Record summary:
The record is a 73-nucleotide sequence from Alligator sinensis, which matches "Mammalian CPEB3 ribozyme" in Rfam. Lineage of the source: Eukaryota > Deuterostomia > Tetrapoda > Alligatoridae > Alligator.
[Rfam]
RNA sequence: AAAGUCACAAGGCCAUAGCGGAAGUACUCACAGUGUGGCCUUAUCAGAUUCCAACAAAUCUGUUAAUUCUGUU
Number, nucleotide and partner (000 for none) at each position: 001a000002a000003a000004g000005u000006c000007a000008c000009a000010a041011g040012g039013c038014c037015a000016u000017a073018g072019c071020g070021g069022a068023a067024g036025u035026a034027c000028u000029c000030a000031c000032a000033g000034u026035g025036u024037g014038g013039c012040c011041u010042u000043a000044u000045c062046a061047g060048a059049u058050u057051c000052c000053a000054a000055c000056a000057a050058a049059u048060c047061u046062g045063u000064u000065a000066a000067u023068u022069c021070u020071g019072u018073u017